RNA sequence: GGCCAAUUUCUCUGAGCGAGCAAUGAAGUAAUAUUUGUUCGACCUGAUAUAACAAAUAAGACUUUUUUGGUCGUUAGCAGGAAUUGUCC
Number, nucleotide and partner (000 for none) at each position: 001g089002g088003c000004c086005a085006a084007u083008u082009u081010c080011u079012c000013u000014g000015a075016g074017c073018g072019a071020g000021c069022a068023a067024u000025g065026a064027a063028g062029u061030a000031a000032u058033a057034u056035u055036u054037g053038u052039u000040c000041g000042a000043c000044c000045u000046g000047a000048u000049a000050u000051a000052a038053c037054a036055a035056a034057u033058a032059a000060g000061a029062c028063u027064u026065u025066u000067u023068u022069g021070g000071u019072c018073g017074u016075u015076a000077g000078c000079a011080g010081g009082a008083a007084u006085u005086g004087u000088c002089c001
Rfam assigns this 89-nucleotide sequence from Drosophila virilis to the family "mir-974 microRNA precursor family". The organism belongs to Drosophila, within Eukaryota. Rfam's curators put it in the seed alignment.